[Rfam]
RNA sequence: GUGAAGAAUUAACAUCCGUAUUUUCCUAAAAUAACACGGCGGUAAUUUAUGGUUAUUCAUUAUUUUAGGAUUAAGCUCAAUACAGCAAUAUGCGCAAUGACGUGGACAAGCGGAUUUAUCUUAUAAAAAAGCCGAUAUAAAUAUCGGCUUGUUUUAUGACU
Numbered sequence: 001g002u003g004a005a006g007a008a009u010u011a012a013c014a015u016c017c018g019u020a021u022u023u024u025c026c027u028a029a030a031a032u033a034a035c036a037c038g039g040c041g042g043u044a045a046u047u048u049a050u051g052g053u054u055a056u057u058c059a060u061u062a063u064u065u066u067a068g069g070a071u072u073a074a075g076c077u078c079a080a081u082a083c084a085g086c087a088a089u090a091u092g093c094g095c096a097a098u099g100a101c102g103u104g105g106a107c108a109a110g111c112g113g114a115u116u117u118a119u120c121u122u123a124u125a126a127a128a129a130a131g132c133c134g135a136u137a138u139a140a141a142u143a144u145c146g147g148c149u150u151g152u153u154u155u156a157u158g159a160c161u
Stems, first nucleotide, its partner, number of pairs: 015106005024070003028066007041057007112121002129150009
About this RNA: Shown here is a 161-nucleotide RNA from Citrobacter rodentium, a member of the family "Enterobacterial sRNA STnc430". The family's RNA type in Rfam is small RNA. It scores 127 bits against the family's covariance model.